RNA sequence: AUGACCUUUAAAAAUAGUCCUGUGAGGCUAAGAAGGAAAUCUGCAUUAGCUAAUAAUUUUUAUUUCUAUUAGCCAAACAGAAAGACCAACUUGGACUAAGUGACCAGGUUGGUCUUUUUCUU
Dot-bracket structure: ....(((((.....(((((......))))).))))).........((.(((((((...........)))))))..))...((((((((((((((.........)))))))))))))).....
RNA: PyrR binding site